[Rfam]
This 67-nucleotide sequence from Mus musculus belongs to the Rfam family "mir-290 microRNA precursor family".
The family has 31 seed sequences and 565 matches in Rfam 15.1.
Taxonomically the source falls in Mus (Eukaryota, Metazoa, Chordata, Rodentia).
The literature on the family includes a 2003 paper in Dev Cell by Houbaviy et al., "Embryonic stem cell-specific MicroRNAs".
Gene Ontology terms of the family: miRNA-mediated post-transcriptional gene silencing and RISC complex.
It is one of the family's seed sequences.
Its Rfam clan is "mir-290 clan".
RNA sequence: GCGGUACUCAAACUAUGGGGGCACUUUUUUUUUUCUUUAAAAAGUGCCGCCUAGUUUUAAGCCCCGC
Number, nucleotide and partner (000 for none) at each position: 001g000002c000003g000004g064005u000006a000007c061008u060009c000010a058011a057012a056013c000014u000015a000016u000017g051018g050019g000020g048021g047022c046023a045024c044025u043026u041027u040028u039029u000030u000031u000032u000033u000034u000035c000036u000037u000038u000039a028040a027041a026042a000043a025044g024045u023046g022047c021048c020049g000050c018051c017052u000053a000054g000055u000056u012057u011058u010059a000060a008061g007062c000063c000064c004065c000066g000067c000